[Rfam]
RNA sequence: UACAUCGGUCAAUUGCUGCUUUGUAAAAAGUAGAGGAAAGUCCGCGCUAGCACUAUCUGAGAUGAUAGUAGUGUUCAUGUUGGAUCUAAUAAAUCCAAGCCUAGACGACAAGUGCCACAGAGACGAAUUUAUUAAAUUAAAGUGAAACGCGGUAAACUCCAUGAGCUAGAAACCCAAAUUAAGGUAGGGGAAUUUGUUUUUUAGAAAUCAAUAAAAAACAAAAAGUUUUUUAACUUAGAUAAAUAAUUGACACUAGAAAUAGUACAGAACGCGGCUUAUAGAU
Numbered sequence: 001u002a003c004a005u006c007g008g009u010c011a012a013u014u015g016c017u018g019c020u021u022u023g024u025a026a027a028a029a030g031u032a033g034a035g036g037a038a039a040g041u042c043c044g045c046g047c048u049a050g051c052a053c054u055a056u057c058u059g060a061g062a063u064g065a066u067a068g069u070a071g072u073g074u075u076c077a078u079g080u081u082g083g084a085u086c087u088a089a090u091a092a093a094u095c096c097a098a099g100c101c102u103a104g105a106c107g108a109c110a111a112g113u114g115c116c117a118c119a120g121a122g123a124c125g126a127a128u129u130u131a132u133u134a135a136a137u138u139a140a141a142g143u144g145a146a147a148c149g150c151g152g153u154a155a156a157c158u159c160c161a162u163g164a165g166c167u168a169g170a171a172a173c174c175c176a177a178a179u180u181a182a183g184g185u186a187g188g189g190g191a192a193u194u195u196g197u198u199u200u201u202u203a204g205a206a207a208u209c210a211a212u213a214a215a216a217a218a219c220a221a222a223a224a225g226u227u228u229u230u231u232a233a234c235u236u237a238g239a240u241a242a243a244u245a246a247u248u249g250a251c252a253c254u255a256g257a258a259a260u261a262g263u264a265c266a267g268a269a270c271g272c273g274g275c276u277u278a279u280a281g282a283u
Stems, first nucleotide, its partner, number of pairs: 004283003007279001008251007016033006038277003042274005047169005052069006075164005080098006099106001100104001107159002112157002114153003128141004173189003193222007223236005253262003

Bacterial RNase P class B: a 283-nucleotide RNA from Mycoplasma sp. 1654_15.
A reference for the family is Frank and Pace (1998), "Ribonuclease P: unity and diversity in a tRNA processing ribozyme", Annu Rev Biochem.
It is annotated as a ribozyme.
Rfam links the family to the GO terms tRNA processing, ribonuclease P activity and dimeric ribonuclease P complex.
The source organism's lineage runs through Bacteria, Bacillati, Mollicutes, Mycoplasmatales and Mycoplasma.